[Rfam]
Nucleotides: 049
Base pairs, nucleotide, nucleotide: 007048008047009045010044011043
Number, partner (000 for none) and nucleotide at each position: 001000c002000u003000a004000u005000a006000c007048u008047g009045c010044u011043c012000c013000u014000g015000a016000u017000u018000a019000u020000u021000c022000c023000g024000u025000c026000u027000u028000c029000a030000u031000c032000u033000c034000a035000u036000u037000c038000c039000u040000a041000g042000a043011g044010a045009g046000u047008c048007a049000a